The record is a 123-nucleotide RNA sequence, which matches "Burkholderia RNA 11" in Rfam. The base pairs follow the family's consensus structure, which was predicted with RNAfold. The literature on the family includes a 2013 paper in Genomics by Ramos et al., "Experimental identification of small non-coding regulatory RNAs in the opportunistic human pathogen Burkholderia cenocepacia J2315". From the family's description: Co-purified with Hfq, expression confirmed by Northern blot. Predicted target marZ. Overlaps coding sequence. It is annotated as a small RNA.

RNA sequence: GCAACCUGACAGCUGGCGCAUGGCAACCCGGUGGUGUUCCGCUCGCUGCUGGGCAUCAGCUGGAUGUGGUUCUUCGGGGCGGUGUACCUCUCGCAGUUCCCCAGAUUCGCCAAGGAGGUGCUG
Numbered sequence: 001g002c003a004a005c006c007u008g009a010c011a012g013c014u015g016g017c018g019c020a021u022g023g024c025a026a027c028c029c030g031g032u033g034g035u036g037u038u039c040c041g042c043u044c045g046c047u048g049c050u051g052g053g054c055a056u057c058a059g060c061u062g063g064a065u066g067u068g069g070u071u072c073u074u075c076g077g078g079g080c081g082g083u084g085u086a087c088c089u090c091u092c093g094c095a096g097u098u099c100c101c102c103a104g105a106u107u108c109g110c111c112a113a114g115g116a117g118g119u120g121c122u123g
Stems, first nucleotide, its partner, number of pairs: 011050003015046001018042002022038004027033001052122005060114002063111001064106002068100002072096002075093005081088002
Dot-bracket structure: ..........(((.(..((..((((.(.....).))))..))...).))).(((((...((.(((..((..((.(((((.((....))))))).))..))....))....).))...))))).